[Rfam]
RNA sequence: AGAACGCACAUUACUUAUCCCUAGGGCCAUGGGAUGAAAAAAAACCAUGGAAGAAAAAGUUAGCACACCUUAGAAUGGUUCUGGCACAAUUACUAACCUAUGGCUUUGAUACCAGUUGAAGGAAAAAACCC
Numbered sequence: 001a002g003a004a005c006g007c008a009c010a011u012u013a014c015u016u017a018u019c020c021c022u023a024g025g026g027c028c029a030u031g032g033g034a035u036g037a038a039a040a041a042a043a044a045c046c047a048u049g050g051a052a053g054a055a056a057a058a059g060u061u062a063g064c065a066c067a068c069c070u071u072a073g074a075a076u077g078g079u080u081c082u083g084g085c086a087c088a089a090u091u092a093c094u095a096a097c098c099u100a101u102g103g104c105u106u107u108g109a110u111a112c113c114a115g116u117u118g119a120a121g122g123a124a125a126a127a128a129c130c131c
Stems, first nucleotide, its partner, number of pairs: 009121001011119003015115002022108012048086002053080002057076001060073004

A member of the RNA family "MIR845_2 microRNA precursor family" from Vitis rotundifolia, 131 nucleotides long. Rfam 15.1 lists 180 matches to the family in 2 species. A search with the family's covariance model found it, with a score of 123 bits.